[Rfam]
RNA sequence: ACAGUACCGUGCCCUUGUCAUUCUUCUUGCCCGGUGUUUUAUACUACUGGACGGAGAACUGAUAAGGGCUCGUUCUGUA
Numbered sequence: 001a002c003a004g005u006a007c008c009g010u011g012c013c014c015u016u017g018u019c020a021u022u023c024u025u026c027u028u029g030c031c032c033g034g035u036g037u038u039u040u041a042u043a044c045u046a047c048u049g050g051a052c053g054g055a056g057a058a059c060u061g062a063u064a065a066g067g068g069c070u071c072g073u074u075c076u077g078u079a
Stems, first nucleotide, its partner, number of pairs: 012068009021058006030050002
mir-184 microRNA precursor family: a 79-nucleotide RNA from Vanessa tameamea. Its family is annotated with gene silencing by miRNA and RISC complex in the Gene Ontology. A reference for the family is Chen et al. (2005), "The developmental miRNA profiles of zebrafish as determined by small RNA cloning", Genes Dev.